[Rfam]
RNA sequence: GCGGGCUCAGCCCGCGGGAUGUUCCGCACUGCGGAGAACCACAAA
Numbered sequence: 001g002c003g004g005g006c007u008c009a010g011c012c013c014g015c016g017g018g019a020u021g022u023u024c025c026g027c028a029c030u031g032c033g034g035a036g037a038a039c040c041a042c043a044a045a
Stems, first nucleotide, its partner, number of pairs: 001015005016040002023035004
Dot-bracket structure: (((((.....)))))((.....((((.....))))...)).....